[Rfam]
RNA sequence: GCCGAGCUCACUAGCGAGAGCUUGUAACCCAAGAGGGGGCAUCAGGUGGUGUGGAUGUUUGGUGCAGAAUUUGGGCCUGGGUCCAUGCGUGUAACUAUGCUGGCUUGCCCGUUCCAAGUUGAGUAGUGGGUGGAGGGGCUUCGGCGAAAGCCUUGGUCUCUCUGGCCCUGAAGUUGUGACAGGCACGGCGUGAGGCUGGCUUCACAGAGCAGCGAUCACUGCCCGCUUCCAACGGUGGAAGGAUAACAGGCCGCUGCACCAUAGGCCCGCUUCUGGCCCAGAGUCCCACUAUAACAGACCCACCAUCUU
Numbered sequence: 001g002c003c004g005a006g007c008u009c010a011c012u013a014g015c016g017a018g019a020g021c022u023u024g025u026a027a028c029c030c031a032a033g034a035g036g037g038g039g040c041a042u043c044a045g046g047u048g049g050u051g052u053g054g055a056u057g058u059u060u061g062g063u064g065c066a067g068a069a070u071u072u073g074g075g076c077c078u079g080g081g082u083c084c085a086u087g088c089g090u091g092u093a094a095c096u097a098u099g100c101u102g103g104c105u106u107g108c109c110c111g112u113u114c115c116a117a118g119u120u121g122a123g124u125a126g127u128g129g130g131u132g133g134a135g136g137g138g139c140u141u142c143g144g145c146g147a148a149a150g151c152c153u154u155g156g157u158c159u160c161u162c163u164g165g166c167c168c169u170g171a172a173g174u175u176g177u178g179a180c181a182g183g184c185a186c187g188g189c190g191u192g193a194g195g196c197u198g199g200c201u202u203c204a205c206a207g208a209g210c211a212g213c214g215a216u217c218a219c220u221g222c223c224c225g226c227u228u229c230c231a232a233c234g235g236u237g238g239a240a241g242g243a244u245a246a247c248a249g250g251c252c253g254c255u256g257c258a259c260c261a262u263a264g265g266c267c268c269g270c271u272u273c274u275g276g277c278c279c280a281g282a283g284u285c286c287c288a289c290u291a292u293a294a295c296a297g298a299c300c301c302a303c304c305a306u307c308u309u
Stems, first nucleotide, its partner, number of pairs: 001040003004023006011016001028037003044308008053299001056296002058293001060291005068284001070282008079268005085262003089259003094255001101253007109242002112240005118233004123229001125227003128167002131164010143152003168173001178223001180221003187216001189214003196207003

The record is a 309-nucleotide RNA from Oryza meridionalis, which matches "Plant signal recognition particle RNA" in Rfam. Taxonomically the source falls in Oryza (Eukaryota, Viridiplantae, commelinids, Oryzeae). The family's consensus secondary structure is taken from published work. Rfam classes the family as a non-coding RNA gene.